[Rfam]
RNA sequence: ACCUGUCACGGGCGCUCUGCGCGGCGCCCGGGGCACAAGACAAACACCGUGCCACGGGAACAUUCGGGCACUUUUGGGCGUU
Numbered sequence: 001a002c003c004u005g006u007c008a009c010g011g012g013c014g015c016u017c018u019g020c021g022c023g024g025c026g027c028c029c030g031g032g033g034c035a036c037a038a039g040a041c042a043a044a045c046a047c048c049g050u051g052c053c054a055c056g057g058g059a060a061c062a063u064u065c066g067g068g069c070a071c072u073u074u075u076g077g078g079c080g081u082u
Stems, first nucleotide, its partner, number of pairs: 004035004009030008049071005056064001